A member of the RNA family "SAM riboswitch aptamer (S box leader)" from Caldibacillus debilis, 110 nucleotides long.
Lineage of the source: Bacteria > Bacillati > Bacillaceae > Caldibacillus > Caldibacillus debilis.

Nucleotides: 110
Stems, first nucleotide, its partner, number of pairs: 001110008013042001016041003022032003026084002043076004048072002050069006085099006
Number, partner (000 for none) and nucleotide at each position: 001110c002109u003108c004107u005106u006105a007104u008103u009000g010000c011000g012000a013042g014000u015000a016041g017040g018039c019000g020000g021000a022032g023031g024030g025000a026084c027083u028000g029000c030024c031023c032022c033000g034000a035000g036000g037000a038000a039018g040017c041016c042013c043076g044075g045074c046073a047000a048072c049071c050069u051068g052067c053066u054065u055064a056000u057000u058000g059000a060000c061000a062000a063000a064055u065054a066053a067052g068051u069050a070000a071049g072048g073046u074045g075044c076043u077000c078000a079000a080000c081000u082000g083027a084026g085099c086098a087097a088096g089095g090094g091000a092000a093000u094090u095089c096088c097087u098086u099085g100000a101000a102000c103008g104007a105006u106005a107004a108003g109002a110001g